Rfam assigns this 307-nucleotide RNA from Punica granatum to the family "Plant signal recognition particle RNA".
RNA sequence: GCGGAGCUCAGUAGCGUGGGCUUGUGACUAAGCGGGGGGCACUAAAGGUGAUGGGACAUGGGCUUGGUUGCAUUGGGCUGGGUCCGCUGUGGCUAUCCACUGGCAUGCCCUCUCCAAGCUGAGAGUUGGGUCGUGUGGUCUGGGCGGAGACCAGGGCUUCGCAGCCUCUAGAGUAGAGGGUACAGUGUCAGGCUGGUUUGACAGAGCAGCGAAAACGUCCCGCUCCCGGCAGUGGAAGGAUAACAGACCGGUGCCACUCGAGCCCACCAUGGCUCAAUUGGCCAAACCCAUCUGAACCAUCACUUUU
Numbered sequence: 001g002c003g004g005a006g007c008u009c010a011g012u013a014g015c016g017u018g019g020g021c022u023u024g025u026g027a028c029u030a031a032g033c034g035g036g037g038g039g040c041a042c043u044a045a046a047g048g049u050g051a052u053g054g055g056a057c058a059u060g061g062g063c064u065u066g067g068u069u070g071c072a073u074u075g076g077g078c079u080g081g082g083u084c085c086g087c088u089g090u091g092g093c094u095a096u097c098c099a100c101u102g103g104c105a106u107g108c109c110c111u112c113u114c115c116a117a118g119c120u121g122a123g124a125g126u127u128g129g130g131u132c133g134u135g136u137g138g139u140c141u142g143g144g145c146g147g148a149g150a151c152c153a154g155g156g157c158u159u160c161g162c163a164g165c166c167u168c169u170a171g172a173g174u175a176g177a178g179g180g181u182a183c184a185g186u187g188u189c190a191g192g193c194u195g196g197u198u199u200g201a202c203a204g205a206g207c208a209g210c211g212a213a214a215a216c217g218u219c220c221c222g223c224u225c226c227c228g229g230c231a232g233u234g235g236a237a238g239g240a241u242a243a244c245a246g247a248c249c250g251g252u253g254c255c256a257c258u259c260g261a262g263c264c265c266a267c268c269a270u271g272g273c274u275c276a277a278u279u280g281g282c283c284a285a286a287c288c289c290a291u292c293u294g295a296a297c298c299a300u301c302a303c304u305u306u307u
Stems, first nucleotide, its partner, number of pairs: 001040002004023007028037001029034001044307011057294002059290003064285005072278008080265004085260002089257004094253002100251004106245002109239002113236004118230004123225004128167004133162003137158005143152002168173001176219002179216001186211003193204003

Lineage of the source: Eukaryota > Tracheophyta > eudicotyledons > Myrtales > Punica. Rfam links the family to the GO terms SRP-dependent cotranslational protein targeting to membrane, signal sequence recognition and signal recognition particle, endoplasmic reticulum targeting. It is annotated as a non-coding RNA gene.